Small nucleolar RNA SNORD103/SNORD85: a 90-nucleotide RNA sequence from Callorhinchus milii. The match comes from Rfam's covariance-model search (51 bits).

RNA sequence: CCUGGCAGUGAUGACACACUUGCCCUCACUGAGAGCUGCUUCACUGCUUCUCUGCUGAGACCUGUACAUGUACUCGCAAGCUGAGCCAGG
Numbered sequence: 001c002c003u004g005g006c007a008g009u010g011a012u013g014a015c016a017c018a019c020u021u022g023c024c025c026u027c028a029c030u031g032a033g034a035g036c037u038g039c040u041u042c043a044c045u046g047c048u049u050c051u052c053u054g055c056u057g058a059g060a061c062c063u064g065u066a067c068a069u070g071u072a073c074u075c076g077c078a079a080g081c082u083g084a085g086c087c088a089g090g
Stems, first nucleotide, its partner, number of pairs: 001090006
Dot-bracket structure: ((((((..............................................................................))))))

Overview: By type it is a C/D-box small nucleolar RNA. The base pairs follow the family's consensus structure.